[Rfam]
RNA sequence: CGGGCGGUGUCGCCGCGCGCUACUCCGGAACCGGGGCUGUUCUCACGAGUCAGGUACCUGAAGUAGCGCGCGGUGCCGCCGCUC
Number, nucleotide and partner (000 for none) at each position: 001c000002g000003g000004g000005c000006g000007g000008u000009g077010u000011c075012g074013c000014c072015g000016c070017g069018c068019g067020c066021u065022a064023c000024u000025c000026c000027g000028g000029a000030a055031c054032c053033g000034g000035g051036g050037c049038u048039g000040u000041u000042c000043u000044c000045a000046c000047g000048a038049g037050u036051c035052a000053g032054g031055u030056a000057c000058c000059u000060g000061a000062a000063g000064u022065a021066g020067c019068g018069c017070g016071c000072g014073g000074u012075g011076c000077c009078g000079c000080c000081g000082c000083u000084c000
RNA: mir-275 microRNA precursor family